Overview:
A member of the RNA family "Group II catalytic intron D1-D4-3" from Flavilitoribacter nigricans, 175 nucleotides long. The pairing is the family consensus, mapped onto this sequence. Rfam describes the family as follows. Group II introns are found in rRNA, tRNA and mRNA of organelles in fungi, plants and protists, and also in mRNA in bacteria.
RNA sequence: UCUCGGGCGACUGAGAAUCUGAAGGAAGGCUAAGGCAAAAUCCUGGUGCGGACGCACAGAAACUGAAUAGUAGGCCUUUGGAUUCGGGGAAGCGUACCAUAAAGCGUAUAAUCCCAACAGGCAGUCGGAGGAUCGAAGGGUAAAUUCAGCCGCAGCGGAUGCAAGUGUGAUGGCU
Numbered sequence: 001u002c003u004c005g006g007g008c009g010a011c012u013g014a015g016a017a018u019c020u021g022a023a024g025g026a027a028g029g030c031u032a033a034g035g036c037a038a039a040a041u042c043c044u045g046g047u048g049c050g051g052a053c054g055c056a057c058a059g060a061a062a063c064u065g066a067a068u069a070g071u072a073g074g075c076c077u078u079u080g081g082a083u084u085c086g087g088g089g090a091a092g093c094g095u096a097c098c099a100u101a102a103a104g105c106g107u108a109u110a111a112u113c114c115c116a117a118c119a120g121g122c123a124g125u126c127g128g129a130g131g132a133u134c135g136a137a138g139g140g141u142a143a144a145u146u147c148a149g150c151c152g153c154a155g156c157g158g159a160u161g162c163a164a165g166u167g168u169g170a171u172g173g174c175u
Stems, first nucleotide, its partner, number of pairs: 001016006028175005035166002040160004046156001047154005063149006074141003078137002081134004086115004092107004